Notes:
A member of the RNA family "SAM riboswitch aptamer (S box leader)" from [Anoxybacillus] calidus, 109 nucleotides long. The organism belongs to Paranoxybacillus, within Bacteria. The SAM riboswitch is found upstream of a number of genes which code for proteins involved in methionine or cysteine biosynthesis in Gram-positive bacteria.
RNA sequence: UACUUAUCAAGAGCGGCGGAGGGACUUGGCCCUGUGAACCCCGGCAACCUGCUUGUAAGGAGUAAGGUGCUAAAUCCAGCAAAAUGUGAACCAUUUUGGGAGAUAAGGU
Numbered sequence: 001u002a003c004u005u006a007u008c009a010a011g012a013g014c015g016g017c018g019g020a021g022g023g024a025c026u027u028g029g030c031c032c033u034g035u036g037a038a039c040c041c042c043g044g045c046a047a048c049c050u051g052c053u054u055g056u057a058a059g060g061a062g063u064a065a066g067g068u069g070c071u072a073a074a075u076c077c078a079g080c081a082a083a084a085u086g087u088g089a090a091c092c093a094u095u096u097u098g099g100g101a102g103a104u105a106a107g108g109u
Stems, first nucleotide, its partner, number of pairs: 003107006013042001015041002021032003026079004043071004048067002050064004075101001080098006